[Rfam]
RNA sequence: CUCCCAUGAGCUUCCCUUUGUCAUCCUAUGCCUGAGUGAUGCCUGGAGGCUGGGAUGGUGAAGGGAGGCCCACGGGCUGCCAUG
Dot-bracket structure: ............((((((.((..(((((.((((.............)))))))))..)).))))))..................
Numbered sequence: 001c002u003c004c005c006a007u008g009a010g011c012u013u014c015c016c017u018u019u020g021u022c023a024u025c026c027u028a029u030g031c032c033u034g035a036g037u038g039a040u041g042c043c044u045g046g047a048g049g050c051u052g053g054g055a056u057g058g059u060g061a062a063g064g065g066a067g068g069c070c071c072a073c074g075g076g077c078u079g080c081c082a083u084g
Stems, first nucleotide, its partner, number of pairs: 013066006020059002024055005030050004